[Rfam]
RNA: Small nucleolar RNA SNORD60
RNA sequence: GGCCGGUGAUGAUCUCUAUCUACCUUUCUGACACCUCGUCUGAGGGCGGUGGGCGUCCGCAGCCCCUGCUGACGAUCCGCGGCUGAGGCCU
Dot-bracket structure: ((((.........................................((.((((....)))).)).......................)))).